[Rfam]
RNA sequence: AAAGUUGUCAAAGUGGCUGUGCUGUGUGACAUUAUUCAUAUCACAGCCUGCUUUGAUGAGCUUUU
Numbered sequence: 001a002a003a004g005u006u007g008u009c010a011a012a013g014u015g016g017c018u019g020u021g022c023u024g025u026g027u028g029a030c031a032u033u034a035u036u037c038a039u040a041u042c043a044c045a046g047c048c049u050g051c052u053u054u055g056a057u058g059a060g061c062u063u064u065u
Stems, first nucleotide, its partner, number of pairs: 005059009015048007025040003
RNA: mir-2 microRNA precursor family